Shown here is a 111-nucleotide RNA sequence from Astyanax mexicanus, a member of the family "Small nucleolar RNA U6-53/MBII-28". A reference for the family is Huttenhofer et al. (2001), "RNomics: an experimental approach that identifies 201 candidates for novel, small, non-messenger RNAs in mouse", EMBO J. It is annotated as a C/D-box small nucleolar RNA. Gene Ontology terms of the family: nucleolus and RNA processing.
[Rfam]
RNA sequence: UUCCUAUGAUGAGUUUGCCAUGCUAAUACUGAUGGACCAGAUUGACUGUGUCUCUCUGGGUGUAAAUGAGUUAAACUCUACUUCUCACACUCGCAGUGUGAUCUGAGGAAA
Number, nucleotide and partner (000 for none) at each position: 001u110002u109003c108004c107005u000006a000007u000008g000009a000010u000011g000012a000013g000014u000015u000016u000017g000018c000019c000020a000021u000022g000023c000024u000025a000026a000027u000028a000029c000030u000031g000032a000033u000034g000035g000036a000037c000038c000039a000040g000041a000042u000043u000044g052045a051046c050047u000048g000049u000050g046051u045052c044053u000054c000055u000056c000057u000058g000059g000060g000061u000062g000063u000064a000065a000066a000067u000068g000069a000070g000071u000072u000073a000074a000075a000076c000077u000078c000079u000080a000081c000082u000083u000084c000085u000086c000087a000088c000089a000090c000091u000092c000093g000094c000095a000096g000097u000098g000099u000100g000101a000102u000103c000104u000105g000106a000107g004108g003109a002110a001111a000